[Rfam]
RNA sequence: CUCGCGUGCCCGGGGUCGGUGAAAGUCCGAGCCGGCGGUGACAGUCCGCGACCCGCGCCCUUCGGGGCCGGUUGAUCUGGUGGAACUCCAGGACCGACGGUGAGAGUCCGGAUGGGAGGCGCACGCG
Dot-bracket structure: ..((.(((((......(((.......))).[[((((((.....[[))))...((...............))....(((((.......)))))]])).(((.....]]))).......))))).))..

A member of the RNA family "FMN riboswitch aptamer (RFN element)" from Aeromicrobium sp. PE09-221, 127 nucleotides long. Rfam links the family to the GO term FMN binding. The base pairs follow the family's consensus structure, which is taken from published work. The literature on the family includes a 2002 paper in Nucleic Acids Res by Vitreschak et al., "Regulation of riboflavin biosynthesis and transport genes in bacteria by transcriptional and translational attenuation".